[Rfam]
RNA: Small nucleolar RNA snoR74
Organism: Amborella trichopoda
RNA sequence: AAAAAAGCUGAGGUCUGUACUUUUCUCCUCUGUGCUGGCCUCUCGUAAACUUCAGGGAAAUUAUUUUCACCAUUAUUGGGUGAACCUUUGUAAACUAUACUUGUGAAUAAAGGUUUAAGAAAUAUUGUGAAAUUA
Numbered sequence: 001a002a003a004a005a006a007g008c009u010g011a012g013g014u015c016u017g018u019a020c021u022u023u024u025c026u027c028c029u030c031u032g033u034g035c036u037g038g039c040c041u042c043u044c045g046u047a048a049a050c051u052u053c054a055g056g057g058a059a060a061u062u063a064u065u066u067u068c069a070c071c072a073u074u075a076u077u078g079g080g081u082g083a084a085c086c087u088u089u090g091u092a093a094a095c096u097a098u099a100c101u102u103g104u105g106a107a108u109a110a111a112g113g114u115u116u117a118a119g120a121a122a123u124a125u126u127g128u129g130a131a132a133u134u135a
Stems, first nucleotide, its partner, number of pairs: 005052003011041002014038002017035004068127002072123003081117007